Overview: Rfam assigns this 210-nucleotide sequence to the family "raiA RNA".
[Rfam]
RNA sequence: UUGGAUCAGGUCUGUGGUUGCAAGUCGACGCCAGUCGCAGGCGAAACGAUCCACGUAAGCAGGGCAAAGUCCCUGUGAGCAUGGUGCGGCUUAGAAGUAAGUCCGGCCAGCCUUGCGCUGAGAGGGUCAGUAGUGGGAGGGCAAACGCCCCAUGAGCGAACGCCCCGGCCGGCGAGUGUGGGGGCAAAGACCAGGUCAGCUGAAUGCCAA
Numbered sequence: 001u002u003g004g005a006u007c008a009g010g011u012c013u014g015u016g017g018u019u020g021c022a023a024g025u026c027g028a029c030g031c032c033a034g035u036c037g038c039a040g041g042c043g044a045a046a047c048g049a050u051c052c053a054c055g056u057a058a059g060c061a062g063g064g065c066a067a068a069g070u071c072c073c074u075g076u077g078a079g080c081a082u083g084g085u086g087c088g089g090c091u092u093a094g095a096a097g098u099a100a101g102u103c104c105g106g107c108c109a110g111c112c113u114u115g116c117g118c119u120g121a122g123a124g125g126g127u128c129a130g131u132a133g134u135g136g137g138a139g140g141g142c143a144a145a146c147g148c149c150c151c152a153u154g155a156g157c158g159a160a161c162g163c164c165c166c167g168g169c170c171g172g173c174g175a176g177u178g179u180g181g182g183g184g185c186a187a188a189g190a191c192c193a194g195g196u197c198a199g200c201u202g203a204a205u206g207c208c209a210a
Stems, first nucleotide, its partner, number of pairs: 001210004005205001007202003012199003015193005028179003031041001033091007050084002058076001062072002082186001103172005108120004124165004133157002139150003